[Rfam]
RNA sequence: UGGGCGAUUUAGGUAGUUUCAUGUUGUUGGGGCUAUCGCUCUCUCUCUCUACAGCACGAAACUGCCUUAAUUACUUC
Numbered sequence: 001u002g003g004g005c006g007a008u009u010u011a012g013g014u015a016g017u018u019u020c021a022u023g024u025u026g027u028u029g030g031g032g033c034u035a036u037c038g039c040u041c042u043c044u045c046u047c048u049c050u051a052c053a054g055c056a057c058g059a060a061a062c063u064g065c066c067u068u069a070a071u072u073a074c075u076u077c
Stems, first nucleotide, its partner, number of pairs: 003075002006072004011067009022056006029049003
This 77-nucleotide RNA sequence from Sphenodon punctatus belongs to the Rfam family "mir-196 microRNA precursor family". The base pairs follow the family's consensus structure, which was predicted with PFOLD. A reference for the family is Lagos-Quintana et al. (2003), "New microRNAs from mouse and human", RNA. Gene Ontology terms of the family: RISC complex and gene silencing by miRNA. Lineage of the source: Eukaryota > Opisthokonta > Gnathostomata > Sauropsida > Sphenodon. Rfam 15.1 lists 1,813 matches to the family in 642 species.